[Rfam]
RNA sequence: CAAACAGAGCUCAGUUGGCAGUAUGCCCACCUCCAAGAAUGAUAGAAAGAAGUGAAUUUUAAAGGGUGUUGUGGAGGUGGACAGAAUGCCAAUAAAUUCUGUUGG
Numbered sequence: 001c002a003a004a005c006a007g008a009g010c011u012c013a014g015u016u017g018g019c020a021g022u023a024u025g026c027c028c029a030c031c032u033c034c035a036a037g038a039a040u041g042a043u044a045g046a047a048a049g050a051a052g053u054g055a056a057u058u059u060u061a062a063a064g065g066g067u068g069u070u071g072u073g074g075a076g077g078u079g080g081a082c083a084g085a086a087u088g089c090c091a092a093u094a095a096a097u098u099c100u101g102u103u104g105g
Base pairs, nucleotide, nucleotide: 011096015092016091017090018089019088020087024083025082027080028079029078030077031076032075033074034073
Dot-bracket structure: ..........(...((((((...((.((((((((......................................)))))))).))...))))))...).........
Annotation: MIR394 microRNA precursor family: a 105-nucleotide RNA sequence from Momordica charantia. NCBI's taxonomy places the organism under Eukaryota, Viridiplantae, Spermatophyta, Mesangiospermae, Momordica. A search with the family's covariance model found it, with a score of 62 bits.